This 65-nucleotide RNA from Sporomusa malonica belongs to the Rfam family "Fluoride riboswitch aptamer (crcB RNA motif)". The source organism's lineage runs through Bacteria, Bacillota, Selenomonadales, Sporomusaceae and Sporomusa. For this family Rfam cites "Widespread genetic switches and toxicity resistance proteins for fluoride" (Baker et al., Science, 2012).

RNA sequence: GAUGUUUGGGGCGAUGGAGUUCGCCAUUAAAUCCGUAAACAGGCGGUGAUGACUCCUACCAGGUA
Numbered sequence: 001g002a003u004g005u006u007u008g009g010g011g012c013g014a015u016g017g018a019g020u021u022c023g024c025c026a027u028u029a030a031a032u033c034c035g036u037a038a039a040c041a042g043g044c045g046g047u048g049a050u051g052a053c054u055c056c057u058a059c060c061a062g063g064u065a
Stems, first nucleotide, its partner, number of pairs: 010025004016056006033046004